[Rfam]
RNA sequence: UCCAUUGCUUACCCAGUACUCAGGGUAGGGUCUGUGUGAUAAUCAUUUACAGCUACAUCUGAUUACUGGGUCUGUAAUGACAUCA
Numbered sequence: 001u002c003c004a005u006u007g008c009u010u011a012c013c014c015a016g017u018a019c020u021c022a023g024g025g026u027a028g029g030g031u032c033u034g035u036g037u038g039a040u041a042a043u044c045a046u047u048u049a050c051a052g053c054u055a056c057a058u059c060u061g062a063u064u065a066c067u068g069g070g071u072c073u074g075u076a077a078u079g080a081c082a083u084c085a
Stems, first nucleotide, its partner, number of pairs: 013069006020062003023058001025056004032052004